A member of the RNA family "Mammalian CPEB3 ribozyme" from Crocodylus porosus, 79 nucleotides long. Pairs were carried over by alignment from the consensus structure, which is taken from published work. Taxonomically the source falls in Crocodylus (Eukaryota, Craniata, Dipnotetrapodomorpha, Archosauria).
[Rfam]
RNA sequence: AGAGGUUGCAAGUCCCAGGCCAUAGAAGAAGUGCUCACAGCACAGUCUGUCAGAUUCCAGUGAAUCUGCGAAUUCGGUU
Number, nucleotide and partner (000 for none) at each position: 001a000002g000003a000004g000005g000006u000007u000008g000009c000010a000011a000012g000013u000014c000015c000016c000017a000018g047019g046020c045021c000022a000023u000024a079025g078026a000027a000028g075029a074030a073031g043032u042033g041034c000035u000036c000037a000038c000039a000040g000041c033042a032043c031044a000045g020046u019047c018048u000049g000050u000051c068052a067053g066054a065055u064056u063057c062058c000059a000060g000061u000062g057063a056064a055065u054066c053067u052068g051069c000070g000071a000072a000073u030074u029075c028076g000077g000078u025079u024